[Rfam]
RNA sequence: UGCCUAACCCUUGUGGUCUAAAACCCGAGGUAUGGCAAAUAUAAAUCCUACGCGAAUAGAACGGCUCCAUAACCGCCACUUAUUCGCGUAGGUCUAUGCUCCGAAAGGACAUAGGACGGUCUCGAAAGGGAUCGCC
Numbered sequence: 001u002g003c004c005u006a007a008c009c010c011u012u013g014u015g016g017u018c019u020a021a022a023a024c025c026c027g028a029g030g031u032a033u034g035g036c037a038a039a040u041a042u043a044a045a046u047c048c049u050a051c052g053c054g055a056a057u058a059g060a061a062c063g064g065c066u067c068c069a070u071a072a073c074c075g076c077c078a079c080u081u082a083u084u085c086g087c088g089u090a091g092g093u094c095u096a097u098g099c100u101c102c103g104a105a106a107g108g109a110c111a112u113a114g115g116a117c118g119g120u121c122u123c124g125a126a127a128g129g130g131a132u133c134g135c136c
Stems, first nucleotide, its partner, number of pairs: 001037004009030005015025003047092011063077003094114005100108001115136001117134007

The record is a 136-nucleotide RNA, which matches "LOOT RNA" in Rfam.